A member of the RNA family "mir-3116 microRNA precursor family" from Ornithorhynchus anatinus, 85 nucleotides long.

RNA sequence: UACUGAGUGCUUACUGUGUGCAGGGCACUGUACUAUACUUUCCAAAUGCUUAGUACAGUGCCCUGCACACAGUAAGCACUCAGUA
Numbered sequence: 001u002a003c004u005g006a007g008u009g010c011u012u013a014c015u016g017u018g019u020g021c022a023g024g025g026c027a028c029u030g031u032a033c034u035a036u037a038c039u040u041u042c043c044a045a046a047u048g049c050u051u052a053g054u055a056c057a058g059u060g061c062c063c064u065g066c067a068c069a070c071a072g073u074a075a076g077c078a079c080u081c082a083g084u085a
Stems, first nucleotide, its partner, number of pairs: 001085035